[Rfam]
RNA: Cripavirus internal ribosome entry site (IRES)
Organism: Wenling crustacean virus 2
RNA sequence: UAAUCAGUGUGAACUUGCUUCAUUGAUAAAGAUGCCAUGAAAAUCUUUGAAGUAUUGCUACUGAUAGUUUAGGGUGUCCCUAUUUAGGGAUGGAGUGCCCCCAGCAACCCUGGAUACUCCAAUUUGGCACAACCUUUGUGUGGGAAGGUCGCCUGCACAAUUGCAAAUUAGACUUAACGAAU
Number, nucleotide and partner (000 for none) at each position: 001u067002a000003a065004u064005c063006a062007g061008u060009g059010u000011g000012a000013a000014c000015u000016u054017g053018c052019u051020u050021c049022a048023u000024u000025g000026a044027u000028a000029a000030a000031g000032a000033u000034g128035c127036c126037a125038u000039g000040a000041a000042a000043a000044u026045c000046u000047u000048u022049g021050a020051a019052g018053u017054a016055u000056u000057g000058c000059u009060a008061c007062u006063g005064a004065u003066a000067g001068u000069u000070u000071a000072g099073g098074g000075u000076g000077u000078c089079c088080c087081u086082a000083u000084u000085u000086a081087g080088g079089g078090a000091u000092g120093g119094a118095g117096u000097g000098c073099c072100c000101c113102c112103a111104g110105c000106a000107a000108c000109c000110c104111u103112g102113g101114a000115u000116a000117c095118u094119c093120c092121a000122a000123u000124u000125u037126g036127g035128c034129a000130c000131a000132a000133c000134c000135u160136u159137u000138g000139u000140g156141u155142g154143g153144g152145a000146a175147g174148g173149u172150c171151g000152c144153c143154u142155g141156c140157a000158c000159a136160a135161u000162u000163g000164c000165a000166a000167a000168u000169u000170a000171g150172a149173c148174u147175u146176a000177a000178c000179g000180a000181a000182u000